Record summary:
A member of the RNA family "TPP riboswitch aptamer (THI element)" from Rhodococcus sp. Leaf258, 108 nucleotides long.
[Rfam]
RNA sequence: GGGAACGAACACGGGAGUCCCGGACGGGGCUGAGAGUGGGCGAGGCCGCCCAGACCGUAACCACCUGACCCGGGUCAUGCCGGCGGAGGAAGUGAGUUUCAUGCAGCG
Numbered sequence: 001g002g003g004a005a006c007g008a009a010c011a012c013g014g015g016a017g018u019c020c021c022g023g024a025c026g027g028g029g030c031u032g033a034g035a036g037u038g039g040g041c042g043a044g045g046c047c048g049c050c051c052a053g054a055c056c057g058u059a060a061c062c063a064c065c066u067g068a069c070c071c072g073g074g075u076c077a078u079g080c081c082g083g084c085g086g087a088g089g090a091a092g093u094g095a096g097u098u099u100c101a102u103g104c105a106g107c108g
Stems, first nucleotide, its partner, number of pairs: 006096001009093002011058004017030005037052005064089003070083004